[Rfam]
RNA sequence: UGCAUCUUUGAUGAUGAUUUGGCUCCCUCUACUGAAUUCUGUGAGGAGGAAAGCCAUCGUUACCCAAUUUUGUCUGAGAUGCA
Numbered sequence: 001u002g003c004a005u006c007u008u009u010g011a012u013g014a015u016g017a018u019u020u021g022g023c024u025c026c027c028u029c030u031a032c033u034g035a036a037u038u039c040u041g042u043g044a045g046g047a048g049g050a051a052a053g054c055c056a057u058c059g060u061u062a063c064c065c066a067a068u069u070u071u072g073u074c075u076g077a078g079a080u081g082c083a
Base pairs, nucleotide, nucleotide: 001083002082003081004080005079006078007077008076

Source information
Shown here is an 83-nucleotide RNA sequence from Lepisosteus oculatus, a member of the family "Small nucleolar RNA SNORD100". Lineage of the source: Eukaryota > Bilateria > Chordata > Teleostomi > Lepisosteus. Its family is annotated with nucleolus and RNA processing in the Gene Ontology. The literature on the family includes a 2002 paper in Mol Cell Biol by Galardi et al., "Purified box C/D snoRNPs are able to reproduce site-specific 2'-O-methylation of target RNA in vitro". It is annotated as a C/D-box small nucleolar RNA.